SAM riboswitch aptamer (S box leader): a 108-nucleotide RNA from Aneurinibacillus soli.

RNA sequence: UUCUUAUCCAGAGAGGCAGAGGGACUGGCCCGAUGAUGCCUCGGCAACCAUUAAACCAUAGCGGUUUGAACGGUGCCAACUCCAGAAGCGCAUGCUUGAAGAUGAGGA
Numbered sequence: 001u002u003c004u005u006a007u008c009c010a011g012a013g014a015g016g017c018a019g020a021g022g023g024a025c026u027g028g029c030c031c032g033a034u035g036a037u038g039c040c041u042c043g044g045c046a047a048c049c050a051u052u053a054a055a056c057c058a059u060a061g062c063g064g065u066u067u068g069a070a071c072g073g074u075g076c077c078a079a080c081u082c083c084a085g086a087a088g089c090g091c092a093u094g095c096u097u098g099a100a101g102a103u104g105a106g107g108a
Stems, first nucleotide, its partner, number of pairs: 001108008013042005021031003025085004043077004048073002051069006081100001086097004
The source organism's lineage runs through Bacteria, Bacillati, Bacillota, Bacilli and Aneurinibacillus. The match comes from Rfam's covariance-model search (86 bits).